Shown here is a 195-nucleotide sequence from Budvicia aquatica, a member of the family "Yersinia sRNA 276". The match comes from Rfam's covariance-model search (170 bits). The source organism's lineage runs through Bacteria, Pseudomonadati, Pseudomonadota, Budviciaceae and Budvicia. By type it is an antisense RNA.
[Rfam]
RNA sequence: CACUGACAUCAGAGAUUCAUUUUGUGAACCCUGACCAACAGCCAGAUAGGCAUUCAUGCCCAACUCUUUCAUCUGCUGUUCACCAAUGACCCGGGUAAUAAUAUUUUCACUGUAGGCGUCAGCCAACUGACGGGCCUGAGAGGCCAGAUAGGCGGCAUUACAGAUAUUUGGCGGCAUAUUGCCUAAGUCUUUCGC
Numbered sequence: 001c002a003c004u005g006a007c008a009u010c011a012g013a014g015a016u017u018c019a020u021u022u023u024g025u026g027a028a029c030c031c032u033g034a035c036c037a038a039c040a041g042c043c044a045g046a047u048a049g050g051c052a053u054u055c056a057u058g059c060c061c062a063a064c065u066c067u068u069u070c071a072u073c074u075g076c077u078g079u080u081c082a083c084c085a086a087u088g089a090c091c092c093g094g095g096u097a098a099u100a101a102u103a104u105u106u107u108c109a110c111u112g113u114a115g116g117c118g119u120c121a122g123c124c125a126a127c128u129g130a131c132g133g134g135c136c137u138g139a140g141a142g143g144c145c146a147g148a149u150a151g152g153c154g155g156c157a158u159u160a161c162a163g164a165u166a167u168u169u170g171g172c173g174g175c176a177u178a179u180u181g182c183c184u185a186a187g188u189c190u191u192u193c194g195c
Stems, first nucleotide, its partner, number of pairs: 005189003012032001014030001016028005033043001035041001050059002062077001064075001078135004084129002087126001092122001094120003099112002102109001136163003140159002143156003167186002170183003